[Rfam]
The family of this 50-nucleotide sequence is "6A RNA". By type it is a small RNA.
RNA sequence: AGAUUUGGUUGUAGAGCGCAACCAAGUAAAAAUAAAGAAAGCUCAAUUGA
Numbered sequence: 001a002g003a004u005u006u007g008g009u010u011g012u013a014g015a016g017c018g019c020a021a022c023c024a025a026g027u028a029a030a031a032a033u034a035a036a037g038a039a040a041g042c043u044c045a046a047u048u049g050a
Base pairs, nucleotide, nucleotide: 006024007023008022009021010020011019014044015043016042017041